[Rfam]
RNA: 7SK RNA
RNA sequence: GGGUGUGAGGGCGAUCUGGCUGCGACAUCUGUCACCCCAUUGAUCGCUAGGGUUGAUUCGGCUGAUCUGGCUGGCUAGGCGGGUGUCCCCCUUCCCUCACAGCUCCAUGUGCGUCCCUCCCGAAGCUCAGCGCUCGGUCGCAGAGGAUGACCCCCUAGAAGAGGACCGCUCCGCCGGUCUAGGGUAUAUGACGUAGCUACACUCCCCUGCUAGGCUAAACCUCCAAGACCAUUUGUAGGAUGACGUAGGGAAGUCAAGCUCCAAGACUUCAGACACAUCCAAGUCAGGCACUGCACGUGGCAGUCUGCCGUUCUUU
Numbered sequence: 001g002g003g004u005g006u007g008a009g010g011g012c013g014a015u016c017u018g019g020c021u022g023c024g025a026c027a028u029c030u031g032u033c034a035c036c037c038c039a040u041u042g043a044u045c046g047c048u049a050g051g052g053u054u055g056a057u058u059c060g061g062c063u064g065a066u067c068u069g070g071c072u073g074g075c076u077a078g079g080c081g082g083g084u085g086u087c088c089c090c091c092u093u094c095c096c097u098c099a100c101a102g103c104u105c106c107a108u109g110u111g112c113g114u115c116c117c118u119c120c121c122g123a124a125g126c127u128c129a130g131c132g133c134u135c136g137g138u139c140g141c142a143g144a145g146g147a148u149g150a151c152c153c154c155c156u157a158g159a160a161g162a163g164g165a166c167c168g169c170u171c172c173g174c175c176g177g178u179c180u181a182g183g184g185u186a187u188a189u190g191a192c193g194u195a196g197c198u199a200c201a202c203u204c205c206c207c208u209g210c211u212a213g214g215c216u217a218a219a220c221c222u223c224c225a226a227g228a229c230c231a232u233u234u235g236u237a238g239g240a241u242g243a244c245g246u247a248g249g250g251a252a253g254u255c256a257a258g259c260u261c262c263a264a265g266a267c268u269u270c271a272g273a274c275a276c277a278u279c280c281a282a283g284u285c286a287g288g289c290a291c292u293g294c295a296c297g298u299g300g301c302a303g304u305c306u307g308c309c310g311u312u313c314u315u316u
Base pairs, nucleotide, nucleotide: 001106002105003104005100006099007098008097009096010095011094013093014092018090019089024087025086026085027084028083029082030081031080032079033078035074036073037070038069039068042067043066044065045064046062047061048060114164115163116161118159119158120137121136122135123134125133126132138157140155145153146152196259197258198257202253203252205250206249207248208247209246210245215239216238219236220235281316282315283314287309288308289307290304291303292302293301294300